[Rfam]
RNA sequence: UCAUUUCUUCGGGGCAGGGUGAAAAUCCCGACCGACGGUAACAGCAGCGAUGUUGAAGUCCGUGACCCGCGUUAAGCGGUUGAUGCAGUGUGAAUCUGCAACCGACAGUUAUAGUCUGGAUGGGAGAAGAAAUAA
Numbered sequence: 001u002c003a004u005u006u007c008u009u010c011g012g013g014g015c016a017g018g019g020u021g022a023a024a025a026u027c028c029c030g031a032c033c034g035a036c037g038g039u040a041a042c043a044g045c046a047g048c049g050a051u052g053u054u055g056a057a058g059u060c061c062g063u064g065a066c067c068c069g070c071g072u073u074a075a076g077c078g079g080u081u082g083a084u085g086c087a088g089u090g091u092g093a094a095u096c097u098g099c100a101a102c103c104g105a106c107a108g109u110u111a112u113a114g115u116c117u118g119g120a121u122g123g124g125a126g127a128a129g130a131a132a133u134a135a
Stems, first nucleotide, its partner, number of pairs: 003133008017029003031115002033104002035063004058102002067079002084100005106118003
This 135-nucleotide RNA sequence from Furfurilactobacillus siliginis belongs to the Rfam family "FMN riboswitch aptamer (RFN element)". The family's consensus secondary structure is taken from published work. The match comes from Rfam's covariance-model search (116 bits).